[Rfam]
RNA sequence: AAAAUUCUUCGGGGUCGGGUGAAACGAUAGAUCAUAAUGAUAAUUCGUCAUUCCCAACCGGCGGUGACAGUCCGCGACCCGUAUCGGAAAAGAGAAGGCAGAGGUAAGAGAACUCUUCGGCAAUGAGCUUUCCGGCGGCUGAUUUGGUGGAAUUCCAAAACCGACAGUAAAGUCUGGAUGAGAGAGGAAAGUA
Numbered sequence: 001a002a003a004a005u006u007c008u009u010c011g012g013g014g015u016c017g018g019g020u021g022a023a024a025c026g027a028u029a030g031a032u033c034a035u036a037a038u039g040a041u042a043a044u045u046c047g048u049c050a051u052u053c054c055c056a057a058c059c060g061g062c063g064g065u066g067a068c069a070g071u072c073c074g075c076g077a078c079c080c081g082u083a084u085c086g087g088a089a090a091a092g093a094g095a096a097g098g099c100a101g102a103g104g105u106a107a108g109a110g111a112a113c114u115c116u117u118c119g120g121c122a123a124u125g126a127g128c129u130u131u132c133c134g135g136c137g138g139c140u141g142a143u144u145u146g147g148u149g150g151a152a153u154u155c156c157a158a159a160a161c162c163g164a165c166a167g168u169a170a171a172g173u174c175u176g177g178a179u180g181a182g183a184g185a186g187g188a189a190a191g192u193a
Stems, first nucleotide, its partner, number of pairs: 005189006017055003057173002059163002061075004070161002079138004143159005165176003
The record is a 193-nucleotide sequence from Lachnospiraceae bacterium 28-4, which matches "FMN riboswitch aptamer (RFN element)" in Rfam. It scores 91 bits against the family's covariance model. About the family: The RFN element is a highly conserved domain that is found frequently in the 5'-untranslated regions of prokaryotic mRNAs that encode for flavin mononucleotide (FMN) biosynthesis and transport proteins.